[Rfam]
RNA sequence: CUAUUGGACGCUUUAGCUAUUGAACUGUUCUGUCACUCUCUGACAGGGAACAAUUUGUUCUUUGACAGAGAGUGACAAAACAGUUCAAUGGCUAAUAAAGCCUCCAGAGU
Numbered sequence: 001c002u003a004u005u006g007g008a009c010g011c012u013u014u015a016g017c018u019a020u021u022g023a024a025c026u027g028u029u030c031u032g033u034c035a036c037u038c039u040c041u042g043a044c045a046g047g048g049a050a051c052a053a054u055u056u057g058u059u060c061u062u063u064g065a066c067a068g069a070g071a072g073u074g075a076c077a078a079a080a081c082a083g084u085u086c087a088a089u090g091g092c093u094a095a096u097a098a099a100g101c102c103u104c105c106a107g108a109g110u
Stems, first nucleotide, its partner, number of pairs: 001109002004107003011100003014094015029069007049059004
The record is a 110-nucleotide RNA from Plutella xylostella, which matches "mir-8517 microRNA precursor family" in Rfam.